Shown here is a 197-nucleotide RNA sequence, a member of the family "Collinsella-1 RNA".
RNA sequence: GGCAGCUCUCAGGAGUGCGGGCUGCCGUCUGAUUGUUUGAGGGUGCCAGAUGUAAAUAAACAGUGGAGCGGCUGCAAAAGAGCCUCCUCACUGGGUAAAAUCAGGUUGUGCCGCGGAACCCGCUCCUCAGCUAGUCACACUUCGGAAGCGCGGGCAACGCAGGUAUUAUCGUCUAAAGGGCCGGCUGCAACCGGCCC
Numbered sequence: 001g002g003c004a005g006c007u008c009u010c011a012g013g014a015g016u017g018c019g020g021g022c023u024g025c026c027g028u029c030u031g032a033u034u035g036u037u038u039g040a041g042g043g044u045g046c047c048a049g050a051u052g053u054a055a056a057u058a059a060a061c062a063g064u065g066g067a068g069c070g071g072c073u074g075c076a077a078a079a080g081a082g083c084c085u086c087c088u089c090a091c092u093g094g095g096u097a098a099a100a101u102c103a104g105g106u107u108g109u110g111c112c113g114c115g116g117a118a119c120c121c122g123c124u125c126c127u128c129a130g131c132u133a134g135u136c137a138c139a140c141u142u143c144g145g146a147a148g149c150g151c152g153g154g155c156a157a158c159g160c161a162g163g164u165a166u167u168a169u170c171g172u173c174u175a176a177a178g179g180g181c182c183g184g185c186u187g188c189a190a191c192c193g194g195c196c197c
Stems, first nucleotide, its partner, number of pairs: 001047004006043008018031005061093006068086001070084004108166005113160003119154005124146002178197007
Description:
It is one of the family's seed sequences.